[Rfam]
RNA: Group II catalytic intron D1-D4-3
RNA sequence: UCAGGGGUGACCCUGGGAGUGAAGUAAGCCAGACUGCGUGGUUGGUACUGACGAACAGGAACCUGAUAUGAGGCUGUAAGGUUGGAUAAGGUAGCACACCAUGCCGACGUCCGAGCGUUCAAUGGAGCGAAUGGCCGAAACAGUAGAUCAGGCAGGGAUUAACCAAAGGACAUUUAC
Number, nucleotide and partner (000 for none) at each position: 001u016002c015003a014004g013005g012006g011007g000008u000009g000010a000011c006012c005013c004014u003015g002016g001017g000018a000019g000020u000021g000022a000023a000024g000025u000026a000027a000028g177029c000030c000031a174032g173033a000034c000035u170036g000037c000038g000039u000040g164041g163042u162043u161044g160045g159046u157047a000048c155049u154050g153051a000052c000053g000054a000055a000056c000057a000058g000059g000060a000061a000062c152063c151064u150065g149066a148067u147068a000069u000070g000071a000072g000073g144074c143075u142076g000077u139078a000079a000080g136081g135082u134083u133084g112085g111086a110087u109088a000089a000090g105091g104092u103093a102094g000095c000096a000097c000098a000099c000100c000101a000102u093103g092104c091105c090106g000107a000108c000109g087110u086111c085112c084113g000114a000115g000116c000117g000118u000119u000120c000121a000122a000123u000124g000125g000126a000127g000128c000129g000130a000131a000132u000133g083134g082135c081136c080137g000138a000139a077140a000141c000142a075143g074144u073145a000146g000147a067148u066149c065150a064151g063152g062153c050154a049155g048156g000157g046158a000159u045160u044161a043162a042163c041164c040165a000166a000167a000168g000169g000170a035171c000172a000173u032174u031175u000176a000177c028